[Rfam]
RNA sequence: UCAUCAUCACCAUUUACCUGAAUAAUCUUUCGGGCAUUUUGUGUGUUCGGAAGAAACUUCCGAGCGAAAUGUGUAGCGAAUGCAAAUAGCAAAAAAGCCAAAACAAAUUUCAACCCCUCGGAAGAUAACUUUCGGGGGGUUUCUUUU
Numbered sequence: 001u002c003a004u005c006a007u008c009a010c011c012a013u014u015u016a017c018c019u020g021a022a023u024a025a026u027c028u029u030u031c032g033g034g035c036a037u038u039u040u041g042u043g044u045g046u047u048c049g050g051a052a053g054a055a056a057c058u059u060c061c062g063a064g065c066g067a068a069a070u071g072u073g074u075a076g077c078g079a080a081u082g083c084a085a086a087u088a089g090c091a092a093a094a095a096a097g098c099c100a101a102a103a104c105a106a107a108u109u110u111c112a113a114c115c116c117c118u119c120g121g122a123a124g125a126u127a128a129c130u131u132u133c134g135g136g137g138g139g140u141u142u143c144u145u146u147u
Base pairs, nucleotide, nucleotide: 008045009044010043012038014036017034018033019032020031021030046064047063048062049061050060051059052058053057112141113140114139115138116137117136118135119134120133121132122131123130124129
Shown here is a 147-nucleotide RNA sequence from Pasteurellaceae bacterium 15-036681, a member of the family "Histidine operon leader". The match comes from Rfam's covariance-model search (69 bits). From the family's description: At least 6 amino acid operons are known to be regulated by attenuation. In each a leader sequence of 150-200 bp is found upstream of the first gene in the operon. This leader sequence can assume two different secondary structures known as the terminator and the anti-terminator structure. In each case the leader also codes for very short peptide sequence that is rich in the end product amino acid of the operon. A reference for the family is Kolter and Yanofsky (1982), "Attenuation in amino acid biosynthetic operons", Annu Rev Genet. Its family is annotated with histidine biosynthetic process in the Gene Ontology. The family's consensus secondary structure is taken from published work. By type it is a cis-regulatory leader.